RNA sequence: CAUGGGGCUUCACCCCAUGCUGACAUCUUACGCGCUUUCAGCGCU
Numbered sequence: 001c002a003u004g005g006g007g008c009u010u011c012a013c014c015c016c017a018u019g020c021u022g023a024c025a026u027c028u029u030a031c032g033c034g035c036u037u038u039c040a041g042c043g044c045u
Base pairs, nucleotide, nucleotide: 001019002018003017004016005015006014007013032044033043034042035041036040
Rfam assigns this 45-nucleotide sequence to the family "Acido-Lenti-1 RNA".